[Rfam]
A member of the RNA family "mir-8517 microRNA precursor family" from Plutella xylostella, 108 nucleotides long. Its family is annotated with RISC complex and miRNA-mediated post-transcriptional gene silencing in the Gene Ontology.
RNA sequence: UUAGUGGACGCUUUAGCUAUUGCAUUUUUCUGUCACUCUCUGACAGAGAACAAUUUGUUCUUUGACAGAGAGGGACAAAACACUUCAAUAGCUAAAGCUAACUUUUUU
Numbered sequence: 001u002u003a004g005u006g007g008a009c010g011c012u013u014u015a016g017c018u019a020u021u022g023c024a025u026u027u028u029u030c031u032g033u034c035a036c037u038c039u040c041u042g043a044c045a046g047a048g049a050a051c052a053a054u055u056u057g058u059u060c061u062u063u064g065a066c067a068g069a070g071a072g073g074g075a076c077a078a079a080a081c082a083c084u085u086c087a088a089u090a091g092c093u094a095a096a097g098c099u100a101a102c103u104u105u106u107u108u
Stems, first nucleotide, its partner, number of pairs: 003105002006102001011097012024084001026082001028080001029069007049059004